[Rfam]
RNA sequence: AAGAGUUGGUGCUGCGGUUGCAGAUUAGGUUUGCUCUAAUCUGAGGAAAGUCCGGGCUCCUGAAAGGUCAGGCUUGCUGGGUAACGCCCAGUGCGGGUGACCGUGAGGAUAGUGCCACAGAAACAUACCGCCGAUGGGUCGGGGUAGGCCUUGUGCUUACCCACACCACAGGUAAGGGUGCAAAGGUGCGGUAAGAGCGCACCAGCAGCAUCGAGAGGUGCUGGCUCGGUAAACCCCGGCUAGGAGCAAGGUCGCAGGGGCUAUGGUUGACCUUUUUCCAGCCCCGCUUUUGGUGUACCGCUAGAGGCAACUGGUAACAGUUGUCCCAGAUAGAUAACCGCCCGUUGAUGGUGACAUCAUCGAGAACAGAACCCGGCUUACGGCUGACUCUUUCCA
Dot-bracket structure: (((((((((((..((((((.(((((((((.....)))))))))....[[[.[[[[[((((.....[[...(((.(((((((.....)))))(((((....)))).)((...(((((...........(((((..(((............................)))..)))..)).......((((((.......)))))).((((((((....))))))).)..)))..))))))))).))))...(((.......(...((...(.(.....]]..).).))...)......)))......((((((((....))))))))..........))))))..............................]]]]]]]].).))))))))))....
RNA: Bacterial RNase P class A
Organism: Leptolyngbya sp. Heron Island J